[Rfam]
RNA: MIR1435 microRNA precursor family
RNA sequence: UAAAGUUUUCUUAAGUCAAACCUUUUAAAGUUUAACAAAAUUUAUAGAAAAGAGCACCAAAAUUUAUGGCACUAGUAUAAAAUGUUGUCAUAAUAUGCUGAUUUGGUAUCAUAAAUACUUGUGCUCUUUUCUACAAAUUCAAUCAAACGUAAAAAAAGUUUUGAUUUAAAAUAACUCUA
Numbered sequence: 001u002a003a004a005g006u007u008u009u010c011u012u013a014a015g016u017c018a019a020a021c022c023u024u025u026u027a028a029a030g031u032u033u034a035a036c037a038a039a040a041u042u043u044a045u046a047g048a049a050a051a052g053a054g055c056a057c058c059a060a061a062a063u064u065u066a067u068g069g070c071a072c073u074a075g076u077a078u079a080a081a082a083u084g085u086u087g088u089c090a091u092a093a094u095a096u097g098c099u100g101a102u103u104u105g106g107u108a109u110c111a112u113a114a115a116u117a118c119u120u121g122u123g124c125u126c127u128u129u130u131c132u133a134c135a136a137a138u139u140c141a142a143u144c145a146a147a148c149g150u151a152a153a154a155a156a157a158g159u160u161u162u163g164a165u166u167u168a169a170a171a172u173a174a175c176u177c178u179a
Stems, first nucleotide, its partner, number of pairs: 006173001008171002011168001013166002016163001018161004023156004031147003035143001045133008055123003059119001062116007072105001074103003